[Rfam]
RNA sequence: CGAGGCGAGUGCCACGCGGCCUCUGCCCGGACGCGGACCCUGACGUACUUCCCCGACGCCAGGUGCCGUAUUCGGUCAGAGACCACGCGGCACUCGCCAUUCGAU
Numbered sequence: 001c002g003a004g005g006c007g008a009g010u011g012c013c014a015c016g017c018g019g020c021c022u023c024u025g026c027c028c029g030g031a032c033g034c035g036g037a038c039c040c041u042g043a044c045g046u047a048c049u050u051c052c053c054c055g056a057c058g059c060c061a062g063g064u065g066c067c068g069u070a071u072u073c074g075g076u077c078a079g080a081g082a083c084c085a086c087g088c089g090g091c092a093c094u095c096g097c098c099a100u101u102c103g104a105u
Base pairs, nucleotide, nucleotide: 010092011091012090013089015087016086018084019083021081022080023079024078025077027075028074029073030072031071033069034068035067036066039063040062041061042060044058045057046056
RNA: mraW RNA